[Rfam]
RNA sequence: GACCGUCACCGCAAUGGUAAUUCAACUUAGUACGAGAGGAACCGUUGAUUCGGAUAAUUGGUUUUUGCGGCUGUCCGACCGGGCAGUGCCGCGACGCUACCAUCCGCUGGAUUAUGGCUGAACGCCUCUAAGUCAGAAUCCAUGCCAGAACGCGGCGAUUUUCCCCCGCACGUCGUAGUCGGAUACGAAUAGGCUUCGGCCCUGCAUCCUAGCAGGCCGGCAGUGGUCCCGACCUGGAAACGGUCGGGGCUAGCCGGCGCAUUGCAAUUUCACCACGCGCGGGGUCAAAUCCCUUGCAUACGACUUGGUCGUCCCGCCCGGUCGUGUACGCAAUAGAGUACUCUUGUUAGUACGAUUUGCUGAGCGUCAGCCGGAUUCGCGGGCUAGAUUUUA
Numbered sequence: 001g002a003c004c005g006u007c008a009c010c011g012c013a014a015u016g017g018u019a020a021u022u023c024a025a026c027u028u029a030g031u032a033c034g035a036g037a038g039g040a041a042c043c044g045u046u047g048a049u050u051c052g053g054a055u056a057a058u059u060g061g062u063u064u065u066u067g068c069g070g071c072u073g074u075c076c077g078a079c080c081g082g083g084c085a086g087u088g089c090c091g092c093g094a095c096g097c098u099a100c101c102a103u104c105c106g107c108u109g110g111a112u113u114a115u116g117g118c119u120g121a122a123c124g125c126c127u128c129u130a131a132g133u134c135a136g137a138a139u140c141c142a143u144g145c146c147a148g149a150a151c152g153c154g155g156c157g158a159u160u161u162u163c164c165c166c167c168g169c170a171c172g173u174c175g176u177a178g179u180c181g182g183a184u185a186c187g188a189a190u191a192g193g194c195u196u197c198g199g200c201c202c203u204g205c206a207u208c209c210u211a212g213c214a215g216g217c218c219g220g221c222a223g224u225g226g227u228c229c230c231g232a233c234c235u236g237g238a239a240a241c242g243g244u245c246g247g248g249g250c251u252a253g254c255c256g257g258c259g260c261a262u263u264g265c266a267a268u269u270u271c272a273c274c275a276c277g278c279g280c281g282g283g284g285u286c287a288a289a290u291c292c293c294u295u296g297c298a299u300a301c302g303a304c305u306u307g308g309u310c311g312u313c314c315c316g317c318c319c320g321g322u323c324g325u326g327u328a329c330g331c332a333a334u335a336g337a338g339u340a341c342u343c344u345u346g347u348u349a350g351u352a353c354g355a356u357u358u359g360c361u362g363a364g365c366g367u368c369a370g371c372c373g374g375a376u377u378c379g380c381g382g383g384c385u386a387g388a389u390u391u392u393a
Stems, first nucleotide, its partner, number of pairs: 005159003009155004015147004020050001022048005051106005059099003066093005071086006108142003115135005165283005171277001287391005292308002296304001313383005319373003323366002330360004335356001338353005
The family of this 393-nucleotide part of an RNA from Cladonia borealis is "Eukaryotic large subunit ribosomal RNA". Gene Ontology terms of the family: ribosome and structural constituent of ribosome. Taxonomically the source falls in Cladonia (Eukaryota, Pezizomycotina, Lecanorales, Cladoniaceae).